[Rfam]
RNA sequence: CUUCCGCCCUCCCCGCACAGGAGGGCGGACCGAGGCUCCGGCGCUCUCUGCCCUGACUGCGCCGAGGCCUCACCCGCGGCCGCGGGACCGCACACCCUCGGCCGUUGCAACUCCGGGCUGCGGUGCCGGACGGGUUGAGGGUCCCGUCGCGGCGC
Numbered sequence: 001c002u003u004c005c006g007c008c009c010u011c012c013c014c015g016c017a018c019a020g021g022a023g024g025g026c027g028g029a030c031c032g033a034g035g036c037u038c039c040g041g042c043g044c045u046c047u048c049u050g051c052c053c054u055g056a057c058u059g060c061g062c063c064g065a066g067g068c069c070u071c072a073c074c075c076g077c078g079g080c081c082g083c084g085g086g087a088c089c090g091c092a093c094a095c096c097c098u099c100g101g102c103c104g105u106u107g108c109a110a111c112u113c114c115g116g117g118c119u120g121c122g123g124u125g126c127c128g129g130a131c132g133g134g135u136u137g138a139g140g141g142u143c144c145c146g147u148c149g150c151g152g153c154g155c
Base pairs, nucleotide, nucleotide: 003029004028005027006026008024009023010022011021012020032071033070034069035068036067039064040063041062043060044059045056046055076105077104078103079102080101081100082099084097085096086095110124111123112122114120115119129148130147131146132145133144134143